[Rfam]
RNA: Ure2 internal ribosome entry site (IRES)
RNA sequence: CAAAAGAGUGACAGCGAGAGCAACAUCAAAGAUACCUUGGAGCAGCAUCGACAACAACAGCAGACGUUUUCAGAUAUGAGUCACGUGGAAUAUUCAAGAAUUACA
Numbered sequence: 001c002a003a004a005a006g007a008g009u010g011a012c013a014g015c016g017a018g019a020g021c022a023a024c025a026u027c028a029a030a031g032a033u034a035c036c037u038u039g040g041a042g043c044a045g046c047a048u049c050g051a052c053a054a055c056a057a058c059a060g061c062a063g064a065c066g067u068u069u070u071c072a073g074a075u076a077u078g079a080g081u082c083a084c085g086u087g088g089a090a091u092a093u094u095c096a097a098g099a100a101u102u103a104c105a
Stems, first nucleotide, its partner, number of pairs: 014086003018082002023077001025075003029070005036063002